[Rfam]
RNA sequence: GGGGGUAGGCCCUCCGGAGUCGCCCAUGCGGGGGGAGGCUCCAAACCGCCUCGAGGUGCGUUAGCUGAAGACUGUCGUGCUGAACGUCGGGGAAAAGUCCGGAUGCUAUCCGGGCAGGU
Numbered sequence: 001g002g003g004g005g006u007a008g009g010c011c012c013u014c015c016g017g018a019g020u021c022g023c024c025c026a027u028g029c030g031g032g033g034g035g036a037g038g039c040u041c042c043a044a045a046c047c048g049c050c051u052c053g054a055g056g057u058g059c060g061u062u063a064g065c066u067g068a069a070g071a072c073u074g075u076c077g078u079g080c081u082g083a084a085c086g087u088c089g090g091g092g093a094a095a096a097g098u099c100c101g102g103a104u105g106c107u108a109u110c111c112g113g114g115c116a117g118g119u
Stems, first nucleotide, its partner, number of pairs: 001015005016042006023035003027032001047118001049092006055081002058078003062074003097115006
RNA: Group II catalytic intron D1-D4-2